[Rfam]
RNA sequence: UUAACACCAAUUUGUAUGCAGUUGGAACAGCGCCUCUAGCUGCAAACGUAGGCAAAAGCUCCAAUUCCAUACAAAUUUGAAUUA
Numbered sequence: 001u002u003a004a005c006a007c008c009a010a011u012u013u014g015u016a017u018g019c020a021g022u023u024g025g026a027a028c029a030g031c032g033c034c035u036c037u038a039g040c041u042g043c044a045a046a047c048g049u050a051g052g053c054a055a056a057a058g059c060u061c062c063a064a065u066u067c068c069a070u071a072c073a074a075a076u077u078u079g080a081a082u083u084a
Base pairs, nucleotide, nucleotide: 009077010076011075012074013073014072015071016070018068020066021065022064023063024062025061026060028058034052035051039047
The family of this 84-nucleotide sequence from Bombyx mori is "mir-2807 microRNA precursor family". Lineage of the source: Eukaryota > Mandibulata > Hexapoda > Eumetabola > Bombyx. It scores 55 bits against the family's covariance model. On this family, see Liu et al., BMC Genomics 2010: "MicroRNAs of Bombyx mori identified by Solexa sequencing".